Rfam assigns this 587-nucleotide part of an RNA from Companilactobacillus allii to the family "Bacterial large subunit ribosomal RNA". The match comes from Rfam's covariance-model search (2930 bits). On this family, see Yusupov et al., Science 2001: "Crystal structure of the ribosome at 5.5 A resolution". The base pairs follow the family's consensus structure, which is taken from published work. Taxonomically the source falls in Companilactobacillus (Bacteria, Bacillati, Lactobacillales, Lactobacillaceae).
[Rfam]
RNA sequence: CCCGCGACAGGACGGAAAGACCCCAUGGAGCUUUACUGUAGCUUGAUAUUGAGUUUUUGUGUGACAUGUACAGGAUAGGUAGGAGCCGUUGAAAUCGGAACGCUAGUUUCGAUUGAGGCAUUGGUGGGAUACUACCCUUGUUAUAUGAAAACUCUAACCUGCACCAUUAAUCGUGGUGAGGGACAGUGUCUGGUGGGCAGUUUGACUGGGGCGGUCGCCUCCUAAAAUGUAACGGAGGCGCUCAAAGGUUCUCUCAGAAUGGUUGGAAAUCAUUCGCAGAGUGUAAAGGCACAAGAGAGCUUGACUGCGAGACUGACAAGUCGAGCAGGUACGAAAGUAGGACUUAGUGAUCCGGUGGUUCCAUAUGGAAGGGCCAUCGCUCAACGGAUAAAAGCUACCCUGGGGAUAACAGGCUUAUCUCCCCCAAGAGUUCACAUCGACGGGGAGGUUUGGCACCUCGAUGUCGGCUCAUCGCAUCCUGGGGCUGUAGUCGGUCCCAAGGGUUGGGCUGUUCGCCCAUUAAAGCGGUACGCGAGCUGGGUUCAGAACGUCGUGAGACAGUUCGGUCCCUAUCCGUCGCGGGCGUA
Numbered sequence: 001c002c003c004g005c006g007a008c009a010g011g012a013c014g015g016a017a018a019g020a021c022c023c024c025a026u027g028g029a030g031c032u033u034u035a036c037u038g039u040a041g042c043u044u045g046a047u048a049u050u051g052a053g054u055u056u057u058u059g060u061g062u063g064a065c066a067u068g069u070a071c072a073g074g075a076u077a078g079g080u081a082g083g084a085g086c087c088g089u090u091g092a093a094a095u096c097g098g099a100a101c102g103c104u105a106g107u108u109u110c111g112a113u114u115g116a117g118g119c120a121u122u123g124g125u126g127g128g129a130u131a132c133u134a135c136c137c138u139u140g141u142u143a144u145a146u147g148a149a150a151a152c153u154c155u156a157a158c159c160u161g162c163a164c165c166a167u168u169a170a171u172c173g174u175g176g177u178g179a180g181g182g183a184c185a186g187u188g189u190c191u192g193g194u195g196g197g198c199a200g201u202u203u204g205a206c207u208g209g210g211g212c213g214g215u216c217g218c219c220u221c222c223u224a225a226a227a228u229g230u231a232a233c234g235g236a237g238g239c240g241c242u243c244a245a246a247g248g249u250u251c252u253c254u255c256a257g258a259a260u261g262g263u264u265g266g267a268a269a270u271c272a273u274u275c276g277c278a279g280a281g282u283g284u285a286a287a288g289g290c291a292c293a294a295g296a297g298a299g300c301u302u303g304a305c306u307g308c309g310a311g312a313c314u315g316a317c318a319a320g321u322c323g324a325g326c327a328g329g330u331a332c333g334a335a336a337g338u339a340g341g342a343c344u345u346a347g348u349g350a351u352c353c354g355g356u357g358g359u360u361c362c363a364u365a366u367g368g369a370a371g372g373g374c375c376a377u378c379g380c381u382c383a384a385c386g387g388a389u390a391a392a393a394g395c396u397a398c399c400c401u402g403g404g405g406a407u408a409a410c411a412g413g414c415u416u417a418u419c420u421c422c423c424c425c426a427a428g429a430g431u432u433c434a435c436a437u438c439g440a441c442g443g444g445g446a447g448g449u450u451u452g453g454c455a456c457c458u459c460g461a462u463g464u465c466g467g468c469u470c471a472u473c474g475c476a477u478c479c480u481g482g483g484g485c486u487g488u489a490g491u492c493g494g495u496c497c498c499a500a501g502g503g504u505u506g507g508g509c510u511g512u513u514c515g516c517c518c519a520u521u522a523a524a525g526c527g528g529u530a531c532g533c534g535a536g537c538u539g540g541g542u543u544c545a546g547a548a549c550g551u552c553g554u555g556a557g558a559c560a561g562u563u564c565g566g567u568c569c570c571u572a573u574c575c576g577u578c579g580c581g582g583g584c585g586u587a
Base pairs, nucleotide, nucleotide: 001583002582003581004580005579006578007577008576010575011574012573014570015569022404023403024402025401027400028399029396030395031394032393033392035201036200037199038198042193043192045190046189047188048187051154052153053152054151055150056149057148058147059146060145061144062143063142064141065140066139068137078136079135080134081133082132085119086118087117094113095112096111097110098109099108100107101106158181159180160179162178163177164176165175166174167173204216205215206214207213217239218238219237220236221235222234240385242342243341248300249299250298251297252296253295254280255279257275258274259273260272261271262270281290282289305328306327307326308325311322312321313320330339331338332337353379354378355377356376357375358374359373361372362371413454414453415452417451418448419447420446421445422444423443424442428438429437465540466538467537468536469535470532471529472528473527474526475525478503479502481498482497483496484495485494486493505519506518507517508516509515546564547563548562549561550559551558552557